[Rfam]
RNA sequence: UGGGUAGCGAUGAUUAUAAACUAAUUCCUCCUACUGAUUGCUGUUGCCACAACUUGAGAGACCGUUUUACACCCACAGAAUAUGAGCUUCC
Numbered sequence: 001u002g003g004g005u006a007g008c009g010a011u012g013a014u015u016a017u018a019a020a021c022u023a024a025u026u027c028c029u030c031c032u033a034c035u036g037a038u039u040g041c042u043g044u045u046g047c048c049a050c051a052a053c054u055u056g057a058g059a060g061a062c063c064g065u066u067u068u069a070c071a072c073c074c075a076c077a078g079a080a081u082a083u084g085a086g087c088u089u090c091c
Stems, first nucleotide, its partner, number of pairs: 003091002006088002

Annotation:
The record is a 91-nucleotide RNA from Olea europaea, which matches "Small nucleolar RNA snoR8a" in Rfam.